[Rfam]
RNA sequence: AUAAUGAUACUUCUGAAUUUAACCAUUAAAAUUCAGUCAUAUAAUGACGGUGUAAUUCCGAUGU
Numbered sequence: 001a002u003a004a005u006g007a008u009a010c011u012u013c014u015g016a017a018u019u020u021a022a023c024c025a026u027u028a029a030a031a032u033u034c035a036g037u038c039a040u041a042u043a044a045u046g047a048c049g050g051u052g053u054a055a056u057u058c059c060g061a062u063g064u
Stems, first nucleotide, its partner, number of pairs: 012061001013036008037047003048060003
The family of this 64-nucleotide sequence from bacterium 1xD42-87 is "pemK RNA".